[Rfam]
A member of the RNA family "IMES-1 RNA motif", 200 nucleotides long. The sequence is in the family's curated seed alignment.

Nucleotides: 200
Base pairs, nucleotide, nucleotide: 001053003051004049015042016041065186066185068182070181071180080119081118083117085115086114087113088112089111127147129145130144131143132142136169137168138167139166154176155175156174157173158172159171
Number, partner (000 for none) and nucleotide at each position: 001053u002000c003051u004049c005000a006000a007000g008000a009000g010000a011000c012000c013000g014000a015042u016041c017000g018000g019000a020000a021000g022000g023000u024000g025000a026000g027000u028000g029000c030000a031000g032000a033000a034000a035000c036000c037000g038000a039000a040000a041016g042015a043000a044000g045000a046000g047000u048000c049004g050000a051003a052000a053001a054000g055000a056000g057000a058000a059000a060000g061000a062000g063000a064000c065186c066185u067000a068182a069000a070181g071180g072000g073000u074000g075000a076000a077000a078000g079000c080119g081118a082000a083117g084000a085115c086114g087113g088112c089111u090000g091000g092000a093000g094000a095000a096000g097000c098000u099000a100000g101000c102000a103000a104000u105000a106000a107000c108000a109000a110000a111089a112088g113087c114086c115085g116000a117083c118081u119080c120000c121000c122000a123000c124000c125000a126000a127147a128000c129145u130144c131143g132142a133000a134000a135000a136169g137168a138167g139166a140000a141000a142132u143131c144130g145129a146000g147127u148000a149000a150000g151000g152000a153000g154176c155175u156174g157173a158172a159171g160000a161000a162000a163000a164000a165000a166139u167138c168137u169136c170000a171159c172158u173157u174156c175155a176154g177000a178000c179000a180071c181070c182068u183000a184000a185066a186065g187000g188000a189000c190000u191000c192000g193000a194000c195000u196000g197000a198000g199000a200000a